[Rfam]
A member of the RNA family "ZMP/ZTP riboswitch aptamer (pfl RNA motif)" from Henriciella algicola, 80 nucleotides long. The source organism's lineage runs through Bacteria, Pseudomonadota, Hyphomonadales, Hyphomonadaceae and Henriciella. Pairs were carried over by alignment from the consensus structure, which is taken from published work.
RNA sequence: GCAAAGCCGCGUAACUGGCGCUUGGGUGGUUUACCACCGGGGAGCGCGGCGCUGAUCCGCCGUGCGCCUGGGCAUGAACC
Numbered sequence: 001g002c003a004a005a006g007c008c009g010c011g012u013a014a015c016u017g018g019c020g021c022u023u024g025g026g027u028g029g030u031u032u033a034c035c036a037c038c039g040g041g042g043a044g045c046g047c048g049g050c051g052c053u054g055a056u057c058c059g060c061c062g063u064g065c066g067c068c069u070g071g072g073c074a075u076g077a078a079c080c
Stems, first nucleotide, its partner, number of pairs: 003053001006050007015041002017068005026037004059073003